[Rfam]
RNA: SAH (S-adenosyl-L-homocysteine) riboswitch aptamer
RNA sequence: CCGUCCGAGGGGCGCUGCAGCAGUUUGCAUACCCGAUGCUCAAUCAGCGGUUUGCAACUGUCAGGCUCGAACGGGGCGCGUUAACCGGGUUGCCGGAGACCAUCGGUCCCGGCCCUGAAUACGCACAACGGCGCUCAAUUCGC
Dot-bracket structure: .(((.(((............(((((..............................)))))......))).)))......................................................................